[Rfam]
RNA sequence: UAUAAAAAUAAAGCGCCAGGACUUAAUGAGGUUUAAGAAUCUUUAAGUUGACGAGGAUGGGAAGUAUCGAGUUUUCGGCGGAUGUCCCACGGUAUUGCACUACCGAGAAAGAUUGGUAAAGCUAAAGUAUAUUAGUACAAAUUCAAUCAGGUGUGAUUU
Numbered sequence: 001u002a003u004a005a006a007a008a009u010a011a012a013g014c015g016c017c018a019g020g021a022c023u024u025a026a027u028g029a030g031g032u033u034u035a036a037g038a039a040u041c042u043u044u045a046a047g048u049u050g051a052c053g054a055g056g057a058u059g060g061g062a063a064g065u066a067u068c069g070a071g072u073u074u075u076c077g078g079c080g081g082a083u084g085u086c087c088c089a090c091g092g093u094a095u096u097g098c099a100c101u102a103c104c105g106a107g108a109a110a111g112a113u114u115g116g117u118a119a120a121g122c123u124a125a126a127g128u129a130u131a132u133u134a135g136u137a138c139a140a141a142u143u144c145a146a147u148c149a150g151g152u153g154u155g156a157u158u159u
Base pairs, nucleotide, nucleotide: 020049021048022047023046024045025044026043029040058089059088060087061086062085067078068077069076070075090105091104092103093102094101111148112147113146114145115144122135123134124133125132
The record is a 159-nucleotide RNA from Clostridium fungisolvens, which matches "glmS glucosamine-6-phosphate activated ribozyme aptamer" in Rfam. Rfam describes the family as follows. This entry contains a glucosamine-6-phosphate activated ribozyme that is found in the mRNA for GlmS. GlmS is an enzyme that uses fructose-6-phosphate and glutamine to generate glucosamine-6-phosphate.